[Rfam]
sroB RNA: a 78-nucleotide RNA from Gibbsiella quercinecans. Pairs were carried over by alignment from the consensus structure, which was predicted with LocARNA.
RNA sequence: CCGGCGGUUUCAAUACGAAUGACUAGCAUAUCAAAAAUGCCGCGUUGACUGGCCAAUAGCCAUAUUGGCCCUUUUUUA
Numbered sequence: 001c002c003g004g005c006g007g008u009u010u011c012a013a014u015a016c017g018a019a020u021g022a023c024u025a026g027c028a029u030a031u032c033a034a035a036a037a038u039g040c041c042g043c044g045u046u047g048a049c050u051g052g053c054c055a056a057u058a059g060c061c062a063u064a065u066u067g068g069c070c071c072u073u074u075u076u077u078a
Stems, first nucleotide, its partner, number of pairs: 004016001007014002024030002051070008